[Rfam]
RNA sequence: GCCAUGGGGCCGAUAUGCGACUGCCCCGUGAGGCGCCAGCCCAAAGUCGCAUCCACUGUUUUGCCAGAGGAUGUGCCAUG
Numbered sequence: 001g002c003c004a005u006g007g008g009g010c011c012g013a014u015a016u017g018c019g020a021c022u023g024c025c026c027c028g029u030g031a032g033g034c035g036c037c038a039g040c041c042c043a044a045a046g047u048c049g050c051a052u053c054c055a056c057u058g059u060u061u062u063g064c065c066a067g068a069g070g071a072u073g074u075g076c077c078a079u080g
Stems, first nucleotide, its partner, number of pairs: 005028006049074006
Rfam assigns this 80-nucleotide RNA sequence from Roseovarius aestuarii to the family "chrB-a RNA". It scores 56 bits against the family's covariance model. The organism belongs to Roseovarius, within Bacteria. The family's RNA type in Rfam is cis-regulatory element.